Rfam assigns this 121-nucleotide RNA sequence to the family "Bacteriophage Diversity-Generating Retroelement RNA".
RNA sequence: AACUAUAGUACGCACAAGCUACUAUGUUUGAUCUUUACGAUCAGCUUUCUAUCUGCUUCGGCAAAUACAAAACUUAGAUUGAUGUAUUGCAGAGUAUUGAAAUAUAAAAACGCAUGUCAAU
Numbered sequence: 001a002a003c004u005a006u007a008g009u010a011c012g013c014a015c016a017a018g019c020u021a022c023u024a025u026g027u028u029u030g031a032u033c034u035u036u037a038c039g040a041u042c043a044g045c046u047u048u049c050u051a052u053c054u055g056c057u058u059c060g061g062c063a064a065a066u067a068c069a070a071a072a073c074u075u076a077g078a079u080u081g082a083u084g085u086a087u088u089g090c091a092g093a094g095u096a097u098u099g100a101a102a103u104a105u106a107a108a109a110a111c112g113c114a115u116g117u118c119a120a121u
Stems, first nucleotide, its partner, number of pairs: 001028002004026007012019002054063003077121001079120005088114003097106001098104001